RNA: mir-1302 microRNA precursor family
RNA sequence: UUUUUAGUAUAACUAUGUGCCAUGCAAUAUUUGGAAUGUGCUUAUACUAAAA
Numbered sequence: 001u002u003u004u005u006a007g008u009a010u011a012a013c014u015a016u017g018u019g020c021c022a023u024g025c026a027a028u029a030u031u032u033g034g035a036a037u038g039u040g041c042u043u044a045u046a047c048u049a050a051a052a
Base pairs, nucleotide, nucleotide: 006048007047008046009045010044011043012042014040015039016038018036020034021033022031